[Rfam]
RNA: Ruegeria cis2 sRNA
Organism: Tropicimonas sediminicola
RNA sequence: GUUGGAGUAAUGCGGGUUGUAGUUGAUGAACACGAAGCCGCGGCACUGGUCGAUGGUAUGGAACAGCGGGUUCCAGGUGAAGAAGGCCAGCAUGUAGCUCGGUAGCUGGUUGGCCACGAACAUCUUGCCCGAGGCGAUCAUGUUGGCCCGG
Numbered sequence: 001g002u003u004g005g006a007g008u009a010a011u012g013c014g015g016g017u018u019g020u021a022g023u024u025g026a027u028g029a030a031c032a033c034g035a036a037g038c039c040g041c042g043g044c045a046c047u048g049g050u051c052g053a054u055g056g057u058a059u060g061g062a063a064c065a066g067c068g069g070g071u072u073c074c075a076g077g078u079g080a081a082g083a084a085g086g087c088c089a090g091c092a093u094g095u096a097g098c099u100c101g102g103u104a105g106c107u108g109g110u111u112g113g114c115c116a117c118g119a120a121c122a123u124c125u126u127g128c129c130c131g132a133g134g135c136g137a138u139c140a141u142g143u144u145g146g147c148c149c150g151g
Base pairs, nucleotide, nucleotide: 002035003034004033007031008030013025014024015023037057038056039055040054041052042051043050044049067150068149071081072080073079086147087146088145089144090143091142092141093140094139098134099133100131101130102129103127104126105125110119111118112117